RNA sequence: AAGUGUGUGAAGGAGCGGUUUUACGGAAUCAGUGGAAACAAGGAAACACUUUAUUUCGUGAAUCCACGAA
Numbered sequence: 001a002a003g004u005g006u007g008u009g010a011a012g013g014a015g016c017g018g019u020u021u022u023a024c025g026g027a028a029u030c031a032g033u034g035g036a037a038a039c040a041a042g043g044a045a046a047c048a049c050u051u052u053a054u055u056u057c058g059u060g061a062a063u064c065c066a067c068g069a070a
Base pairs, nucleotide, nucleotide: 017065018064020062021061024058025057029053031051032049033048034047
Dot-bracket structure: ................((.((..((...(.((((............))).).)...))..)).)).....